Shown here is a 393-nucleotide RNA from Cellulomonas fimi, a member of the family "Bacterial RNase P class A". Rfam classes the family as a ribozyme. Rfam links the family to the GO terms dimeric ribonuclease P complex, tRNA processing and ribonuclease P activity. It scores 289 bits against the family's covariance model. Taxonomically the source falls in Cellulomonas (Bacteria, Actinomycetota, Micrococcales, Cellulomonadaceae).

[Rfam]
RNA sequence: UGAGCUGGCCGGGCGGCCGCGUUCCCCACGGUCUCGGUCGUGGGGGCCGAGGAACGUCCGGGCUCCGUAGGGCAGGGUGGUGGGUAACUCCCACCCGGGGUGACCCGCGGGACAGUGCCACAGAGAGCAGACCGCCACGCACGCCCCUCGGGACGUGCGGGGUAAGGGUGAAACGGUGGUGCAAGAGACCACCAGCGCACCGGGUGACCGGUGCGGCUAGGCAAACCCCACCCGGAGCAAGGUCAGACAGGGAGCGUUCGAGGGCAGCCCGUCCGAGCUCCCGGGUAGACCGCUGGAGGCGUGCGGCAACGUACGUCGUAGAUGGAUGGUCGCCACCCACGCGGGGGCAACCGCGCGUGGGGACAGAACCCGGCGUACAGGCCAGCUCAUCCG
Number, nucleotide and partner (000 for none) at each position: 001u389002g388003a387004g386005c385006u384007g383008g382009c381010c380011g378012g334013g333014c332015g331016g330017c329018c328019g000020c049021g048022u000023u046024c045025c044026c043027c042028a041029c040030g039031g038032u000033c000034u000035c000036g000037g000038u031039c030040g029041u028042g027043g026044g025045g024046g023047c000048c021049g020050a000051g000052g000053a000054a376055c375056g374057u000058c373059c372060g371061g370062g369063c237064u236065c235066c234067g000068u000069a000070g270071g269072g268073c267074a000075g233076g232077g231078u230079g229080g094081u093082g092083g091084g090085u000086a000087a000088c000089u000090c084091c083092c082093a081094c080095c109096c107097g106098g105099g104100g000101u000102g000103a000104c099105c098106c097107g096108c000109g095110g228111g227112a000113c000114a000115g226116u225117g222118c221119c220120a000121c000122a000123g000124a000125g000126a000127g000128c000129a000130g000131a000132c167133c166134g163135c162136c161137a000138c159139g158140c157141a156142c155143g000144c000145c000146c000147c000148u000149c000150g000151g000152g000153a000154c000155g142156u141157g140158c139159g138160g000161g136162g135163u134164a000165a000166g133167g132168g000169u000170g000171a000172a000173a000174c000175g193176g192177u191178g190179g189180u188181g000182c000183a000184a000185g000186a000187g000188a180189c179190c178191a177192c176193c175194a000195g217196c215197g214198c213199a212200c211201c210202g209203g208204g000205u000206g000207a000208c203209c202210g201211g200212u199213g198214c197215g196216g000217c195218u000219a000220g119221g118222c117223a000224a000225a116226c115227c111228c110229c079230a078231c077232c076233c075234g066235g065236a064237g063238c000239a000240a000241g291242g290243u289244c288245a000246g000247a000248c000249a000250g282251g281252g280253a279254g278255c277256g000257u000258u000259c000260g000261a000262g274263g273264g272265c271266a000267g073268c072269c071270c070271g265272u264273c263274c262275g000276a000277g255278c254279u253280c252281c251282c250283g000284g000285g000286u000287a000288g244289a243290c242291c241292g000293c000294u000295g000296g000297a000298g317299g316300c315301g314302u313303g312304c311305g310306g000307c000308a000309a000310c305311g304312u303313a302314c301315g300316u299317c298318g000319u000320a000321g000322a000323u000324g000325g000326a000327u000328g018329g017330u016331c015332g014333c013334c012335a000336c000337c000338c000339a000340c000341g000342c000343g000344g000345g000346g000347g000348c000349a000350a000351c000352c000353g000354c000355g000356c000357g000358u000359g000360g000361g000362g000363a000364c000365a000366g000367a000368a000369c062370c061371c060372g059373g058374c056375g055376u054377a000378c011379a000380g010381g009382c008383c007384a006385g005386c004387u003388c002389a001390u000391c000392c000393g000